[Rfam]
RNA sequence: CCGCAUGCUUUCCAAGGAUCCGGGCUCUGUGUGUGUAGUCCUGGGUUCUCCAAGAGUAUGCUAGAGCAACGGGGAGUCUUUGACUGUCAGGGCCUCACAGUGCCCCCGGUGGUCACUCUACUGUCCUACACCU
Numbered sequence: 001c002c003g004c005a006u007g008c009u010u011u012c013c014a015a016g017g018a019u020c021c022g023g024g025c026u027c028u029g030u031g032u033g034u035g036u037a038g039u040c041c042u043g044g045g046u047u048c049u050c051c052a053a054g055a056g057u058a059u060g061c062u063a064g065a066g067c068a069a070c071g072g073g074g075a076g077u078c079u080u081u082g083a084c085u086g087u088c089a090g091g092g093c094c095u096c097a098c099a100g101u102g103c104c105c106c107c108g109g110u111g112g113u114c115a116c117u118c119u120a121c122u123g124u125c126c127u128a129c130a131c132c133u
Base pairs, nucleotide, nucleotide: 012044013043017040018039019038023034071126072125073124075122076121086113087112090105091104092103